The record is a 90-nucleotide sequence from Kwoniella pini, which matches "tRNA" in Rfam.
[Rfam]
RNA sequence: GGCGACAUAGCUCAGUUGGGAGAGCGCACGACUGAAGUUCAAUACGAUUCUCCAUUCGUGCGGUCCCUGGUUCGAUCCCGGGUGGCGCCA
Numbered sequence: 001g002g003c004g005a006c007a008u009a010g011c012u013c014a015g016u017u018g019g020g021a022g023a024g025c026g027c028a029c030g031a032c033u034g035a036a037g038u039u040c041a042a043u044a045c046g047a048u049u050c051u052c053c054a055u056u057c058g059u060g061c062g063g064u065c066c067c068u069g070g071u072u073c074g075a076u077c078c079c080g081g082g083u084g085g086c087g088c089c090a
Stems, first nucleotide, its partner, number of pairs: 001089004006084002010025004027060005066082005
The family's consensus secondary structure is taken from published work. Transfer RNA (tRNA) molecules are approximately 80 nucleotides in length. It scores 49 bits against the family's covariance model. The family's RNA type in Rfam is transfer RNA.